This 65-nucleotide RNA from Streptococcus pneumoniae belongs to the Rfam family "Bacilli-1 RNA". By type it is a small RNA. It is one of the family's seed sequences.
Nucleotides: 065
Stems, first nucleotide, its partner, number of pairs: 002017006018042007
Number, partner (000 for none) and nucleotide at each position: 001000a002017u003016u004015c005014a006013u007012g008000g009000u010000g011000a012007c013006a014005u015004g016003g017002a018042c019041a020040c021039a022038u023037a024036g025000u026000a027000g028000u029000a030000a031000a032000c033000a034000c035000a036024c037023u038022a039021u040020g041019u042018g043000g044000c045000u046000u047000g048000g049000c050000a051000g052000a053000g054000c055000u056000a057000a058000a059000a060000a061000c062000u063000u064000u065000u